[Rfam]
RNA sequence: UCGCGUGCUCUGGGGUCGGUGAAACUCCGAGCCGGCGGUGAAGGACGAAGCCCAGCUGAGUCCGAAGUCCGCGACCCGAUCACAGCCAGUGGUCGGUUGACCAGGUGGGAUUCCUGGACCGACGGUCAAAGUCCGGAUGGGAAGUGCACGCAC
Numbered sequence: 001u002c003g004c005g006u007g008c009u010c011u012g013g014g015g016u017c018g019g020u021g022a023a024a025c026u027c028c029g030a031g032c033c034g035g036c037g038g039u040g041a042a043g044g045a046c047g048a049a050g051c052c053c054a055g056c057u058g059a060g061u062c063c064g065a066a067g068u069c070c071g072c073g074a075c076c077c078g079a080u081c082a083c084a085g086c087c088a089g090u091g092g093u094c095g096g097u098u099g100a101c102c103a104g105g106u107g108g109g110a111u112u113c114c115u116g117g118a119c120c121g122a123c124g125g126u127c128a129a130a131g132u133c134c135g136g137a138u139g140g141g142a143a144g145u146g147c148a149c150g151c152a153c
Stems, first nucleotide, its partner, number of pairs: 003151006010144001017029003031132002033121002035072004067119002076096002101117005123135003